[Rfam]
Notes
Shown here is a 101-nucleotide sequence from Pontibacillus marinus, a member of the family "Purine riboswitch aptamer". Gene Ontology term of the family: purine nucleobase biosynthetic process. Rfam describes the family as follows. Riboswitches are metabolite binding domains within certain messenger RNAs that serve as precision sensors for their corresponding targets. Allosteric rearrangement of mRNA structure is mediated by ligand binding, and this results in modulation of gene expression. A class of riboswitches that selectively recognises guanine and becomes saturated at concentrations as low as 5 nM. In Bacillus subtilis, this mRNA motif is located on at least five separate transcriptional units that together encode 17 genes that are mostly involved in purine transport and purine nucleotide biosynthesis. It has also been shown that some members of this family are specific for adenine instead. Hence this family are termed purine riboswitches. The base pairs follow the family's consensus structure, which is taken from published work.

RNA sequence: UAAAUAAAAGAUUCAGCACCUUGUAUAAGUUCAGGAAUAGGGCCUGAACGUUUCUACCAGCUACCGGAAAUAGCUCGUCUACAAGGGGAGAACAUCUAUGU
Numbered sequence: 001u002a003a004a005u006a007a008a009a010g011a012u013u014c015a016g017c018a019c020c021u022u023g024u025a026u027a028a029g030u031u032c033a034g035g036a037a038u039a040g041g042g043c044c045u046g047a048a049c050g051u052u053u054c055u056a057c058c059a060g061c062u063a064c065c066g067g068a069a070a071u072a073g074c075u076c077g078u079c080u081a082c083a084a085g086g087g088g089a090g091a092a093c094a095u096c097u098a099u100g101u
Stems, first nucleotide, its partner, number of pairs: 019086007029049007058077001059075005